RNA: mir-451 microRNA precursor family
Organism: Conger conger
RNA sequence: AAGAGAGUGGCAAUGAAACCGUUACCAUUACUGAGCUUUAGUAAUGGUAAGGGUUAUAUUGCUUCUUCUCAC
Numbered sequence: 001a002a003g004a005g006a007g008u009g010g011c012a013a014u015g016a017a018a019c020c021g022u023u024a025c026c027a028u029u030a031c032u033g034a035g036c037u038u039u040a041g042u043a044a045u046g047g048u049a050a051g052g053g054u055u056a057u058a059u060u061g062c063u064u065c066u067u068c069u070c071a072c
Stems, first nucleotide, its partner, number of pairs: 007065001009063001011061003017055004022050012